[Rfam]
mir-34 microRNA precursor family: a 68-nucleotide RNA from Acipenser ruthenus. Rfam's curators write: Human mir-34a was discovered computationally and later experimentally verified. The mature sequence is excised from the 5' arm of the hairpin. Its family is annotated with RISC complex and miRNA-mediated post-transcriptional gene silencing in the Gene Ontology. The family's consensus secondary structure was predicted with RNAalifold. The match comes from Rfam's covariance-model search (60 bits). The source organism's lineage runs through Eukaryota, Bilateria, Deuterostomia, Chondrostei and Acipenser. Rfam 15.1 lists 2,256 matches to the family in 820 species.

RNA sequence: GGUUACCUGGCAGUGUAGUUAGCUGAUUGCGGUGUCCCAUCAAUCACUAGCCACACAGCCAUGUAAAC
Numbered sequence: 001g002g003u004u005a006c007c008u009g010g011c012a013g014u015g016u017a018g019u020u021a022g023c024u025g026a027u028u029g030c031g032g033u034g035u036c037c038c039a040u041c042a043a044u045c046a047c048u049a050g051c052c053a054c055a056c057a058g059c060c061a062u063g064u065a066a067a068c
Base pairs, nucleotide, nucleotide: 003066004065005064006063009060010059013056014055015054016053018051019050020049021048022047024046025045026044027043028042029041